The record is a 113-nucleotide RNA sequence from Leptonychotes weddellii, which matches "Y RNA" in Rfam. It is annotated as a non-coding RNA gene. Y RNAs are components of the Ro ribonucleoprotein particle (Ro RNP), in association with Ro60 and La proteins. The Y RNAs and Ro60 and La proteins are well conserved, but the function of the Ro RNP is not known. In humans the RNA component can be one of four small RNAs -- hY1, hY3, hY4 and hY5. These small RNAs are predicted to fold into a conserved secondary structure containing three stem structures. The largest of the four, hY1, contains an additional hairpin. This family includes a significant number of annotated pseudogenes and the model is expected to discriminate poorly between real and Y RNA related pseudogenes. NCBI's taxonomy places the organism under Eukaryota, Teleostomi, Mammalia, Boreoeutheria, Leptonychotes.

Nucleotides: 113
Stems, first nucleotide, its partner, number of pairs: 001109005007103002010101002014097002016092006036075002043067002
Number, partner (000 for none) and nucleotide at each position: 001109g002108g003107c004106u005105g006000a007103u008102c009000c010101a011100a012000a013000g014097g015096u016092a017091g018090u019089g020088a021087g022000u023000u024000a025000u026000c027000u028000c029000a030000a031000g032000u033000g034000a035000u036075g037074g038000u039000u040000c041000c042000c043067a044066g045000u046000u047000a048000c049000a050000g051000a052000u053000u054000g055000a056000a057000c058000u059000c060000c061000u062000u063000g064000u065000u066044c067043u068000a069000c070000u071000c072000u073000u074037c075036c076000c077000c078000u079000c080000c081000c082000c083000c084000c085000u086000c087021c088020u089019c090018a091017c092016u093000a094000c095000u096015g097014c098000a099000c100011u101010u102008g103007a104000c105005u106004a107003g108002u109001c110000u111000u112000u113000a